A member of the RNA family "mir-10 microRNA precursor family" from Hyalella azteca, 73 nucleotides long. It scores 55 bits against the family's covariance model. The family has 36 seed sequences and 3,853 matches in Rfam 15.1.
RNA sequence: CUACAUCUACCCUGUAGAUCCGAAUUUGUGGGACAAAAGUGAACAAAUUCGGUUCUAGAGAGGUUCGUGUGGU
Numbered sequence: 001c002u003a004c005a006u007c008u009a010c011c012c013u014g015u016a017g018a019u020c021c022g023a024a025u026u027u028g029u030g031g032g033a034c035a036a037a038a039g040u041g042a043a044c045a046a047a048u049u050c051g052g053u054u055c056u057a058g059a060g061a062g063g064u065u066c067g068u069g070u071g072g073u
Base pairs, nucleotide, nucleotide: 002071003070004069005068006067010063011062016056017055018054020052021051022050023049024048025047026046027045028044029043
The family's consensus secondary structure was predicted with PFOLD.